The record is a 147-nucleotide RNA sequence from Hibiscus syriacus, which matches "small nucleolar RNA snoR135" in Rfam. Its family is annotated with RNA processing and nucleolus in the Gene Ontology. Rfam classes the family as an H/ACA-box small nucleolar RNA. The organism belongs to Hibiscus, within Eukaryota.
RNA sequence: AGAGCAGGGAUAGUGUGUAUCGGCGAUGUGCAAAAUUUCCGGCGCAUUCUGUUCGAAAGAAUUUCCUGCAAAAUUGAUUUGGGGAAGGUGGGCAGUUGCGCUUCAUAUCCACCAUUGAUUCUUUCAACAAUCAUCUUCCCCAUAUUC
Number, nucleotide and partner (000 for none) at each position: 001a000002g000003a000004g069005c068006a067007g066008g065009g064010a063011u000012a000013g000014u000015g047016u046017g045018u044019a000020u042021c000022g000023g000024c000025g000026a000027u000028g000029u000030g000031c000032a000033a000034a000035a000036u000037u000038u000039c000040c000041g000042g020043c000044g018045c017046a016047u015048u000049c000050u000051g000052u000053u000054c000055g000056a000057a000058a000059g000060a000061a000062u000063u010064u009065c008066c007067u006068g005069c004070a000071a000072a000073a000074u000075u000076g000077a000078u000079u000080u000081g141082g140083g139084g138085a137086a136087g135088g134089u133090g132091g131092g000093c000094a000095g128096u127097u126098g125099c000100g000101c000102u000103u000104c000105a000106u000107a000108u000109c000110c000111a000112c000113c000114a000115u000116u000117g000118a000119u000120u000121c000122u000123u000124u000125c098126a097127a096128c095129a000130a000131u091132c090133a089134u088135c087136u086137u085138c084139c083140c082141c081142a000143u000144a000145u000146u000147c000